[Rfam]
Shown here is a 296-nucleotide RNA from Denticeps clupeoides, a member of the family "Nuclear RNase P". Rfam links the family to the GO terms ribonuclease P activity, ribonuclease P complex and tRNA processing. Ribonuclease P (RNase P) is a ubiquitous endoribonuclease, found in archaea, bacteria and eukarya as well as chloroplasts and mitochondria. Lineage of the source: Eukaryota > Gnathostomata > Otomorpha > Denticipitoidei > Denticeps. The base pairs follow the family's consensus structure, which is taken from published work.
RNA sequence: GUGGACGGAAGCUUGCUGUAGAGGCCACACGCGGAGUACCCCGUUACUCGCCACGUCGCCUCGGGGAAGGUCUGAGACAAGAGCCACUGGCUGUCCUCGCAGGACACCGCUCGACUCGAGCGGGCGAGCGCACAGAAAACCCGGCGCCGCCGCGAGGGUGAAUUUGCGCAGGAGACGCCGCCAUUGCGCGGCCGAUGCGCCCUCGCCGGCUUGGAACCGCUCGCGGCUAGCGCGUGAGUUCGAUGUGCAAGCUGACGCAAGGCGUCAGAACCCAAUUCAGACUACUCUCCCUCCAC
Dot-bracket structure: ((((..(((..(((((....((((.........(((((......))))).........)))).........[[[[[.....((((......(((((.....)))))((((((.....))))))(((((((...............(((...........................................................))).......)))))))))))..................)))))(((((((...))))))).......]]]]].......)))..))))